Annotation
Shown here is a 275-nucleotide sequence from Sciurus carolinensis, a member of the family "Mason-Pfizer monkey virus packaging signal". A search with the family's covariance model found it, with a score of 149 bits. The family's RNA type in Rfam is cis-regulatory element. Rfam's curators write: This family represents a group of sequences that are related to the Mason-Pfizer monkey virus (MPMV) packaging signal. The packaging signal is located in the 5' UTR and is required for specific RNA encapsidation. Taxonomically the source falls in Sciurus (Eukaryota, Metazoa, Eumetazoa, Eutheria).

RNA sequence: UGGCACCCAAUGUGGGGCUUGGAUAUGGGGGAAUUCGUGAGGGAAGAGGCAUUUAAUCAUUCGGCCAAACAAAGCAGAAGUCAGUUCAAGAAGGAUCACCUUGGGAGCCUGCCCUGCCGCUCUUAAAGGUACAGUAACGCCUGAUUAUGGGACAAGAGUUAAGUAAGCAUAAAGUUUUUGUUAAGUAAUUAAAAGAAGCUUUAAAGACAUGGGAGUAAAGGUUAAGAAUAAUGAUCUUUUUAGGUUUUUUGACCUUAUUAAGGACACCUGUCCGU
Number, nucleotide and partner (000 for none) at each position: 001u000002g000003g000004c000005a000006c031007c030008c029009a000010a000011u000012g026013u025014g024015g000016g000017g000018c000019u000020u000021g000022g000023a000024u014025a013026u012027g000028g000029g008030g007031g006032a000033a000034u000035u000036c046037g000038u044039g000040a000041g000042g000043g000044a038045a000046g036047a000048g000049g000050c000051a000052u000053u000054u000055a000056a000057u000058c000059a000060u000061u000062c000063g000064g000065c000066c000067a000068a000069a000070c000071a000072a000073a000074g000075c000076a000077g000078a000079a000080g000081u000082c000083a000084g000085u000086u125087c000088a000089a000090g000091a000092a000093g000094g000095a121096u000097c119098a000099c000100c116101u000102u000103g113104g112105g000106a000107g000108c000109c000110u000111g000112c104113c103114c000115u000116g100117c000118c000119g097120c000121u095122c000123u000124u000125a086126a000127a000128g000129g000130u000131a000132c000133a000134g000135u155136a000137a000138c000139g000140c151141c150142u149143g148144a000145u000146u000147a000148u143149g142150g141151g140152a000153c000154a000155a135156g000157a000158g000159u000160u203161a202162a201163g199164u198165a000166a000167g000168c000169a000170u000171a000172a000173a000174g000175u000176u000177u000178u000179u000180g000181u000182u000183a000184a000185g000186u000187a000188a000189u000190u000191a000192a000193a000194a000195g000196a000197a000198g164199c163200u000201u162202u161203a160204a000205a000206g000207a000208c000209a000210u251211g250212g248213g247214a246215g245216u244217a000218a000219a237220g236221g235222u234223u233224a232225a000226g000227a000228a000229u000230a000231a000232u224233g223234a222235u221236c220237u219238u000239u000240u000241u000242a000243g000244g216245u215246u214247u213248u212249u000250u211251g210252a000253c000254c000255u000256u000257a000258u000259u000260a275261a000262g273263g272264a271265c270266a000267c000268c000269u000270g265271u264272c263273c262274g000275u260